[Rfam]
RNA sequence: ACAGUACAAACUGAGCAGGCGAUGAACUUGGACACAAGUUCAUGGGGCUGGGCCCGAUGGGCAGCAGGUGAUGAUAUACAAUACCUGUGGGACAGUA
Numbered sequence: 001a002c003a004g005u006a007c008a009a010a011c012u013g014a015g016c017a018g019g020c021g022a023u024g025a026a027c028u029u030g031g032a033c034a035c036a037a038g039u040u041c042a043u044g045g046g047g048c049u050g051g052g053c054c055c056g057a058u059g060g061g062c063a064g065c066a067g068g069u070g071a072u073g074a075u076a077u078a079c080a081a082u083a084c085c086u087g088u089g090g091g092a093c094a095g096u097a
Stems, first nucleotide, its partner, number of pairs: 010096004016091001018049003022043006052062004064088006

The record is a 97-nucleotide RNA sequence from Dehalobacter sp. 12DCB1, which matches "NiCo (Nickel/Cobalt) riboswitch aptamer" in Rfam. NCBI's taxonomy places the organism under Bacteria, Bacillota, Eubacteriales, Desulfitobacteriaceae, Dehalobacter. Its Rfam clan is "NiCo_riboswitches". A search with the family's covariance model found it, with a score of 77 bits. For this family Rfam cites "Bacterial riboswitches cooperatively bind Ni(2+) or Co(2+) ions and control expression of heavy metal transporters" (Furukawa et al., Mol Cell, 2015).